Shown here is a 269-nucleotide RNA sequence from Musa balbisiana, a member of the family "Group I catalytic intron". Pairs were carried over by alignment from the consensus structure, which is taken from published work. It scores 115 bits against the family's covariance model. For this family Rfam cites "Crystal structure of a group I ribozyme domain: principles of RNA packing" (Cate et al., Science, 1996). The family has 12 seed sequences and 5,602 matches in Rfam 15.1. Lineage of the source: Eukaryota > Viridiplantae > Streptophyta > Embryophyta > Musa.
RNA sequence: CUACGGACUUGAUUGGAUUGAGCCUAGUAGGAAACUGCUAAGUGGUAACUUCCAAAUUCAGAGAAACCCUGGAAUUAAAAAUGGGCAAUCCUGAGCCAAAUCCUUAUUUUGAGAAAACAAAGGUUUUAAAAACUAGAAUUUAAAAGGAUAGGUGCAGAGACUCAAUGGAAGCUGUUCUAACGAAUGGAGUUGACUACGUUUGUUGGUAGCUGGAAUCCGUCUAUCAAAAUUACAGAAAAAGAUGGUCCUAUAUACCUAAUAGUAUGUAU
Numbered sequence: 001c002u003a004c005g006g007a008c009u010u011g012a013u014u015g016g017a018u019u020g021a022g023c024c025u026a027g028u029a030g031g032a033a034a035c036u037g038c039u040a041a042g043u044g045g046u047a048a049c050u051u052c053c054a055a056a057u058u059c060a061g062a063g064a065a066a067c068c069c070u071g072g073a074a075u076u077a078a079a080a081a082u083g084g085g086c087a088a089u090c091c092u093g094a095g096c097c098a099a100a101u102c103c104u105u106a107u108u109u110u111g112a113g114a115a116a117a118c119a120a121a122g123g124u125u126u127u128a129a130a131a132a133c134u135a136g137a138a139u140u141u142a143a144a145a146g147g148a149u150a151g152g153u154g155c156a157g158a159g160a161c162u163c164a165a166u167g168g169a170a171g172c173u174g175u176u177c178u179a180a181c182g183a184a185u186g187g188a189g190u191u192g193a194c195u196a197c198g199u200u201u202g203u204u205g206g207u208a209g210c211u212g213g214a215a216u217c218c219g220u221c222u223a224u225c226a227a228a229a230u231u232a233c234a235g236a237a238a239a240a241g242a243u244g245g246u247c248c249u250a251u252a253u254a255c256c257u258a259a260u261a262g263u264a265u266g267u268a269u
Stems, first nucleotide, its partner, number of pairs: 005024001008022006028037003047173001049171003053167002058094004063089001067085003095153002101147002157248001159247004175237004182231002254267002257264002